A member of the RNA family "mir-33 microRNA precursor family" from Chanos chanos, 66 nucleotides long. A search with the family's covariance model found it, with a score of 77 bits. Gene Ontology terms of the family: RISC complex and gene silencing by miRNA. On this family, see Li et al., BMC Genomics 2009: "Direct sequencing and expression analysis of a large number of miRNAs in Aedes aegypti and a multi-species survey of novel mosquito miRNAs".
RNA sequence: CUGUGGUGCAUUGUAGUUGCAUUGCAUGUGCUGAACUCUGUGCAAUGUUCCUGCAGUGCAACACAG
Numbered sequence: 001c002u003g004u005g006g007u008g009c010a011u012u013g014u015a016g017u018u019g020c021a022u023u024g025c026a027u028g029u030g031c032u033g034a035a036c037u038c039u040g041u042g043c044a045a046u047g048u049u050c051c052u053g054c055a056g057u058g059c060a061a062c063a064c065a066g
Stems, first nucleotide, its partner, number of pairs: 001066004006062001007060010019048001021046007